[Rfam]
RNA: Aphthovirus internal ribosome entry site (IRES)
RNA sequence: CUAGCCGUUGCGCCUUAGCGCACAGUCCUGAAGGCCCCACAUCUUGUGGAUCUUGCCGUGGACAUGUUUCUGGCAUGUGUUUCUCAAGCCUGCAACCGACGACUGAACAGACGUGUGAACAGUUUGAGUGUGGUAGCGCUGUGUGAGUUGGCGGUGGAACCCCCUCGUGGUGACACGAGCCCCCGUGGCCAAAAGCCCAGUGUUUACAGCACCUCUCACAUCCAGGGAAACCCCACCCUGGCGCUCACUCUUAGUAACACUUCCUAGUAGGUAUUAGGUGGUAAGCCGAGCUCUUCCUCGGUCUUGUUCUGAAUGCACACAUGUCUAGGGGCUAAGGAUGUCCUACAGGUACCCGCACGUAACCUUCAGAGAGUGUGGAUCUGAGUAGGAGACUGUGGUGCGCUGCUUUACAGACGUAGCCCAGUUUAAAAAACGUCUAUGCCCCUACAGGGUCGCGGUGGGCCGCACCCUUUCCUUUUACAAACUUGGUUUU
Number, nucleotide and partner (000 for none) at each position: 001c000002u000003a000004g000005c000006c012007g011008u000009u000010g000011c007012g006013c000014c000015u000016u000017a000018g000019c000020g000021c000022a000023c000024a000025g000026u000027c000028c000029u000030g000031a000032a000033g000034g063035c000036c061037c060038c000039a053040c000041a051042u050043c049044u000045u000046g000047u000048g000049g043050a042051u041052c000053u039054u000055g000056c000057c000058g000059u000060g037061g036062a000063c034064a000065u000066g000067u000068u000069u000070c000071u000072g000073g000074c000075a000076u321077g320078u319079g318080u317081u000082u315083c000084u000085c311086a310087a000088g000089c000090c000091u000092g000093c000094a000095a302096c301097c300098g299099a298100c000101g000102a272103c271104u270105g000106a000107a000108c000109a265110g264111a000112c000113g000114u000115g000116u000117g000118a000119a255120c254121a000122g252123u000124u000125u247126g246127a245128g244129u243130g242131u000132g000133g137134u000135a000136g000137c133138g000139c000140u000141g221142u220143g219144u218145g217146a216147g215148u000149u000150g213151g186152c185153g184154g183155u000156g181157g180158a000159a000160c000161c000162c000163c000164c000165u178166c177167g176168u175169g174170g000171u000172g000173a000174c169175a168176c167177g166178a165179g000180c157181c156182c000183c154184c153185g152186u151187g197188g196189c195190c000191a000192a000193a000194a000195g189196c188197c187198c000199a000200g212201u211202g210203u209204u000205u000206a000207c000208a000209g203210c202211a201212c200213c150214u000215c147216u146217c145218a144219c143220a142221u141222c241223c240224a239225g238226g237227g236228a000229a000230a000231c000232c000233c000234c000235a000236c227237c226238c225239u224240g223241g222242c130243g129244c128245u127246c126247a125248c000249u000250c000251u000252u122253a000254g120255u119256a000257a000258c000259a000260c000261u000262u000263c000264c110265u109266a000267g000268u000269a000270g104271g103272u102273a000274u000275u000276a000277g000278g000279u000280g000281g000282u000283a000284a000285g000286c000287c000288g000289a000290g000291c000292u000293c000294u000295u000296c000297c000298u099299c098300g097301g096302u095303c000304u000305u000306g000307u000308u000309c000310u086311g085312a000313a000314u000315g082316c000317a080318c079319a078320c077321a076322u000323g000324u000325c000326u000327a000328g445329g444330g443331g442332c441333u000334a000335a000336g000337g000338a000339u000340g000341u390342c389343c388344u387345a000346c383347a382348g381349g380350u379351a000352c000353c000354c377355g376356c375357a374358c373359g000360u000361a000362a000363c000364c000365u000366u000367c000368a000369g000370a000371g000372a000373g358374u357375g356376u355377g354378g000379a350380u349381c348382u347383g346384a000385g000386u000387a344388g343389g342390a341391g000392a425393c424394u423395g422396u000397g421398g420399u418400g417401c416402g415403c000404u000405g000406c000407u000408u000409u000410a000411c000412a000413g000414a000415c402416g401417u400418a399419g000420c398421c397422c395423a394424g393425u392426u000427u000428a000429a000430a000431a000432a000433a000434c000435g000436u000437c000438u000439a000440u000441g332442c331443c330444c329445c328446u000447a000448c000449a471450g470451g469452g468453u467454c000455g466456c465457g464458g463459u000460g000461g000462g000463c458464c457465g456466c455467a453468c452469c451470c450471u449472u000473u000474c000475c000476u000477u000478u000479u000480a000481c000482a000483a000484a000485c000486u000487u000488g000489g000490u000491u000492u000493u000